Source information
The record is a 37-nucleotide RNA from Sinomicrobium oceani, which matches "DUF805b RNA" in Rfam. Rfam classes the family as a cis-regulatory element.

RNA sequence: GCGGGGGAAGCCGAAAACCCGGAAGACAGAGUAGGCA
Numbered sequence: 001g002c003g004g005g006g007g008a009a010g011c012c013g014a015a016a017a018c019c020c021g022g023a024a025g026a027c028a029g030a031g032u033a034g035g036c037a
Stems, first nucleotide, its partner, number of pairs: 002021004010036003
Background: The family's consensus secondary structure is taken from published work.